S-element: a 77-nucleotide RNA sequence from Manganibacter manganicus. For this family Rfam cites "Two discrete elements are required for the replication of a repABC plasmid: an antisense RNA and a stem-loop structure" (Venkova-Canova et al., Mol Microbiol, 2004). Pairs were carried over by alignment from the consensus structure, which is taken from published work. Rfam's curators write: This family represents a group of S-elements from p42d and related plasmids. The S-element has multiple functions and is believed to act as a negative regulator of repC transcription, be required for efficient replication and act as a translational enhancer of repC. The match comes from Rfam's covariance-model search (47 bits). By type it is a cis-regulatory element.

RNA sequence: AGUCAAGAGUCCUCGUCAGGAUAACCGCUGUUUCGGCGAGCAGAUUUCUUUUGCCUAGCGAUAGGUGAAGGACAAUG
Numbered sequence: 001a002g003u004c005a006a007g008a009g010u011c012c013u014c015g016u017c018a019g020g021a022u023a024a025c026c027g028c029u030g031u032u033u034c035g036g037c038g039a040g041c042a043g044a045u046u047u048c049u050u051u052u053g054c055c056u057a058g059c060g061a062u063a064g065g066u067g068a069a070g071g072a073c074a075a076u077g
Stems, first nucleotide, its partner, number of pairs: 009073005026067004031063001033061003038056001040054005